This 77-nucleotide RNA from Myotis lucifugus belongs to the Rfam family "Small nucleolar RNA SNORD47". It is one of the family's seed sequences.
RNA sequence: AACCAGUGAUGUAGUGAUUCUGCCAAAUGAAAUAGGAUGAUAUCACUCAUUUACCGUUCCAUUUUUAUUCUGAGGUU
Dot-bracket structure: ((((.....................................................................))))
For this family Rfam cites "RNomics: an experimental approach that identifies 201 candidates for novel, small, non-messenger RNAs in mouse" (Huttenhofer et al., EMBO J, 2001).